[Rfam]
RNA sequence: UUGCUGACCCUAGCGCCAUUUUAAGAGCUAUAAGUGUAAAUAUUUUCAUAGCUCUUUUAAUGGUACUGCGGUAAGCAU
Numbered sequence: 001u002u003g004c005u006g007a008c009c010c011u012a013g014c015g016c017c018a019u020u021u022u023a024a025g026a027g028c029u030a031u032a033a034g035u036g037u038a039a040a041u042a043u044u045u046u047c048a049u050a051g052c053u054c055u056u057u058u059a060a061u062g063g064u065a066c067u068g069c070g071g072u073a074a075g076c077a078u
Base pairs, nucleotide, nucleotide: 002077003076004075007072008071009070011068012067013066015064016063017062018061019060020059024055025054026053027052028051029050030049031048
RNA: mir-458 microRNA precursor family
Organism: Cyprinodon variegatus